[Rfam]
The record is a 96-nucleotide RNA sequence from Propithecus coquereli, which matches "Y RNA" in Rfam.
It scores 66 bits against the family's covariance model.
The source organism's lineage runs through Eukaryota, Metazoa, Sarcopterygii, Dipnotetrapodomorpha and Propithecus.
The family's consensus secondary structure is taken from published work.
RNA sequence: GGCUGGUCCAAUGGUAGUGGGUUAUCAGAACUUACUAACAUUAGUGUCACUGAAGUUGAUAUUCAAUCCCCCACUGCUAAAUUUGACUGGCUUAAA
Dot-bracket structure: ((((((((.((...(((((((...........((..((.................))..))........))))))...)...))))))))))....